Archaeal signal recognition particle RNA: a 314-nucleotide sequence from Halosimplex carlsbadense.
The organism belongs to Halosimplex carlsbadense, within Archaea.
A search with the family's covariance model found it, with a score of 194 bits.
The base pairs follow the family's consensus structure, which is taken from published work.
For this family Rfam cites "SRPDB: Signal Recognition Particle Database" (Rosenblad et al., Nucleic Acids Res, 2003).
Clan: SRP clan.
RNA sequence: GAGUGGACUAGGCCGGGCAGCUAGGCCCUGCUCGUCACCUGCGGUAUGGCCUUUAGCAGGGGCCGAACACCGGGUGCGUCCGGUCAGACGGGCGCGGGCCCCGCAAGCCAACAUAGAAGCCUCGUCCUACGGGGACGGCGGUCCGCGGCGUCGCGUCUGCAGGGACGCGCGGCCGCGGUUGAUCGAGGGCACUCCGUCAGGCGCGGAAGCGAGCAGCGGACCCUCGGACACCCGUCGCUCGCAGGGCCGCGGGGUGGAGGAGGCAAGCGGGAUUCCCCACGCUCGAACGACCGGGCAACCUCGGGAGUCCGUCC
Numbered sequence: 001g002a003g004u005g006g007a008c009u010a011g012g013c014c015g016g017g018c019a020g021c022u023a024g025g026c027c028c029u030g031c032u033c034g035u036c037a038c039c040u041g042c043g044g045u046a047u048g049g050c051c052u053u054u055a056g057c058a059g060g061g062g063c064c065g066a067a068c069a070c071c072g073g074g075u076g077c078g079u080c081c082g083g084u085c086a087g088a089c090g091g092g093c094g095c096g097g098g099c100c101c102c103g104c105a106a107g108c109c110a111a112c113a114u115a116g117a118a119g120c121c122u123c124g125u126c127c128u129a130c131g132g133g134g135a136c137g138g139c140g141g142u143c144c145g146c147g148g149c150g151u152c153g154c155g156u157c158u159g160c161a162g163g164g165a166c167g168c169g170c171g172g173c174c175g176c177g178g179u180u181g182a183u184c185g186a187g188g189g190c191a192c193u194c195c196g197u198c199a200g201g202c203g204c205g206g207a208a209g210c211g212a213g214c215a216g217c218g219g220a221c222c223c224u225c226g227g228a229c230a231c232c233c234g235u236c237g238c239u240c241g242c243a244g245g246g247c248c249g250c251g252g253g254g255u256g257g258a259g260g261a262g263g264c265a266a267g268c269g270g271g272a273u274u275c276c277c278c279a280c281g282c283u284c285g286a287a288c289g290a291c292c293g294g295g296c297a298a299c300c301u302c303g304g305g306a307g308u309c310c311g312u313c314c
Base pairs, nucleotide, nucleotide: 001314003312004311005310006309007308008307009306011064012063013062014061015033016032017031018030019029020028038060039059040058041057042056044054070304071303072302073301074300078296079295080294081293082291084289089285090284091283092282093281094280096278097277098276100271101270102269103268104267107264108263109262112259114257119255120254121253122252123251124250125249126245127244128243130241131240132239133238134236135235136234137233138232140229141180143178144177145176146175147174148173149172152169153168154167155166156165157164158163183227184226185225186224187223188222189221193220194219195218196217197216202211203210204209